[Rfam]
RNA sequence: GUAUUGUCGUGAGUUCCCUUCAAGCACUUCACGUGGCACUAUCUCAAUGCCUACUAUGUGAAGUGUUUGGGGGAACUCUCGAUAUCAC
Numbered sequence: 001g002u003a004u005u006g007u008c009g010u011g012a013g014u015u016c017c018c019u020u021c022a023a024g025c026a027c028u029u030c031a032c033g034u035g036g037c038a039c040u041a042u043c044u045c046a047a048u049g050c051c052u053a054c055u056a057u058g059u060g061a062a063g064u065g066u067u068u069g070g071g072g073g074a075a076c077u078c079u080c081g082a083u084a085u086c087a088c
Stems, first nucleotide, its partner, number of pairs: 005084005011078010022068015
mir-395 microRNA precursor family: an 88-nucleotide RNA from Oryza sativa. Rfam's curators write: mir-395 was identified in both Arabidopsis thaliana and Oryza sativa computationally and was later experimentally verified. mir-395 is thought to target mRNAs coding for ATP sulphurylases. The mature sequence is excised from the 3' arm of the hairpin. Taxonomically the source falls in Oryza sativa (Eukaryota, Streptophytina, Spermatophyta, Petrosaviidae). Rfam links the family to the GO terms RISC complex and miRNA-mediated post-transcriptional gene silencing.